[Rfam]
RNA sequence: GGAGACUUGCGAGGAUCUGUCCCUAGUACGAGAGGACCGGGAUGGACGUACCUCUGGUGUACCAGUUGUGCCGCCAGGCGCAUCGCUGGGUAGCUAAGUACGGAACGGAUAACCGCUGAAGGCAUCUAAGCGGGAAACCAGCCUCUAAACGAGGUCUCCCCAAGGGCCGUGGAAGACCACCACGUCGAUAGGCCGCAGGUGAAAGUGCAGCAAUGCAUGCAGCCGAGCGGUCCUAAUAGCCCAAUUGAU
Numbered sequence: 001g002g003a004g005a006c007u008u009g010c011g012a013g014g015a016u017c018u019g020u021c022c023c024u025a026g027u028a029c030g031a032g033a034g035g036a037c038c039g040g041g042a043u044g045g046a047c048g049u050a051c052c053u054c055u056g057g058u059g060u061a062c063c064a065g066u067u068g069u070g071c072c073g074c075c076a077g078g079c080g081c082a083u084c085g086c087u088g089g090g091u092a093g094c095u096a097a098g099u100a101c102g103g104a105a106c107g108g109a110u111a112a113c114c115g116c117u118g119a120a121g122g123c124a125u126c127u128a129a130g131c132g133g134g135a136a137a138c139c140a141g142c143c144u145c146u147a148a149a150c151g152a153g154g155u156c157u158c159c160c161c162a163a164g165g166g167c168c169g170u171g172g173a174a175g176a177c178c179a180c181c182a183c184g185u186c187g188a189u190a191g192g193c194c195g196c197a198g199g200u201g202a203a204a205g206u207g208c209a210g211c212a213a214u215g216c217a218u219g220c221a222g223c224c225g226a227g228c229g230g231u232c233c234u235a236a237u238a239g240c241c242c243a244a245u246u247g248a249u
Stems, first nucleotide, its partner, number of pairs: 001159008011145004017045007047102005055096003062089005067082006107139002113133005164242004168184005189235003192231005198224002205218005
The family of this 249-nucleotide part of an RNA from Acetobacteraceae bacterium AT-5844 is "Bacterial large subunit ribosomal RNA". The base pairs follow the family's consensus structure, which is taken from published work. A search with the family's covariance model found it, with a score of 2723 bits. The organism belongs to Acetobacteraceae, within Bacteria.